RNA: Small nucleolar RNA SNORD14
RNA sequence: UGUUUGUGAUGAUAAAUCUAAGGCUUGUUUCUCAAGAACAUUCGCAGUUGCCGACUAAGAGCUUUCGCCUUUCGCCGGGCUUGAGAGCUAAUGCUGCUUUUCCUUCCUUGGAUGUCUGAAACA
Numbered sequence: 001u002g003u004u005u006g007u008g009a010u011g012a013u014a015a016a017u018c019u020a021a022g023g024c025u026u027g028u029u030u031c032u033c034a035a036g037a038a039c040a041u042u043c044g045c046a047g048u049u050g051c052c053g054a055c056u057a058a059g060a061g062c063u064u065u066c067g068c069c070u071u072u073c074g075c076c077g078g079g080c081u082u083g084a085g086a087g088c089u090a091a092u093g094c095u096g097c098u099u100u101u102c103c104u105u106c107c108u109u110g111g112a113u114g115u116c117u118g119a120a121a122c123a
Stems, first nucleotide, its partner, number of pairs: 001123004061088006